[Rfam]
RNA sequence: UAAGUCUUUCAGGGCAGGGUGAAAUUCCCGACCGGCGGUAUAGUCCGCGAGCUGUAAUAUCAUAAAGAGUAGUGUUAUUAUGGCAGAUCUGGUUUGAUUCCAGAACCGACAGUAAAGUCUGGAUGGGAGAAUAGGAUUAA
Numbered sequence: 001u002a003a004g005u006c007u008u009u010c011a012g013g014g015c016a017g018g019g020u021g022a023a024a025u026u027c028c029c030g031a032c033c034g035g036c037g038g039u040a041u042a043g044u045c046c047g048c049g050a051g052c053u054g055u056a057a058u059a060u061c062a063u064a065a066a067g068a069g070u071a072g073u074g075u076u077a078u079u080a081u082g083g084c085a086g087a088u089c090u091g092g093u094u095u096g097a098u099u100c101c102a103g104a105a106c107c108g109a110c111a112g113u114a115a116a117g118u119c120u121g122g123a124u125g126g127g128a129g130a131a132u133a134g135g136a137u138u139a140a
Stems, first nucleotide, its partner, number of pairs: 003138005008131003017029003031118002033108002035048004043106002051084009088104005110121003
RNA: FMN riboswitch aptamer (RFN element)
Organism: Clostridium homopropionicum